[Rfam]
RNA sequence: CCAUCAACAGGAAAUGGUGUCUUCCUGCACAAGAACCGUCCGCCGGCCGGCGGACUGAUGGCGCCUACAGAUAA
Numbered sequence: 001c002c003a004u005c006a007a008c009a010g011g012a013a014a015u016g017g018u019g020u021c022u023u024c025c026u027g028c029a030c031a032a033g034a035a036c037c038g039u040c041c042g043c044c045g046g047c048c049g050g051c052g053g054a055c056u057g058a059u060g061g062c063g064c065c066u067a068c069a070g071a072u073a074a
Base pairs, nucleotide, nucleotide: 010025011024012023013022016065017064018063019062020061021060038055039054040053041052042051043050044049